[Rfam]
RNA sequence: AGGCAAAAAUCGUUUUGGACGGGGGUUCGAUUCCCCCCACCUCCACCACAUGCCGGCACGUUCAUAUGCUCGGGAUGCGCCGGUAUCUGAUGGGGGUGAUCAGGUUUCGACAGGGCGACCAGUAACCGGAGAUACACCACGUCAGGCGCCUGACGUAAAUAGCGCAAAUCGAUAAUUGCAAAUGAAUCGCAAUAUCUUGCUUUCGGCACCUAA
Numbered sequence: 001a002g003g004c005a006a007a008a009a010u011c012g013u014u015u016u017g018g019a020c021g022g023g024g025g026u027u028c029g030a031u032u033c034c035c036c037c038c039a040c041c042u043c044c045a046c047c048a049c050a051u052g053c054c055g056g057c058a059c060g061u062u063c064a065u066a067u068g069c070u071c072g073g074g075a076u077g078c079g080c081c082g083g084u085a086u087c088u089g090a091u092g093g094g095g096g097u098g099a100u101c102a103g104g105u106u107u108c109g110a111c112a113g114g115g116c117g118a119c120c121a122g123u124a125a126c127c128g129g130a131g132a133u134a135c136a137c138c139a140c141g142u143c144a145g146g147c148g149c150c151u152g153a154c155g156u157a158a159a160u161a162g163c164g165c166a167a168a169u170c171g172a173u174a175a176u177u178g179c180a181a182a183u184g185a186a187u188c189g190c191a192a193u194a195u196c197u198u199g200c201u202u203u204c205g206g207c208a209c210c211u212a213a
Stems, first nucleotide, its partner, number of pairs: 002126001011117003015113003021037005038098007140155004
Rfam assigns this 213-nucleotide RNA from Herbaspirillum sp. RV1423 to the family "permuted transfer-messenger RNA".
It is one of the family's seed sequences.
Rfam links the family to the GO term RNA catabolic process.
NCBI's taxonomy places the organism under Bacteria, Pseudomonadati, Pseudomonadota, Betaproteobacteria, Herbaspirillum.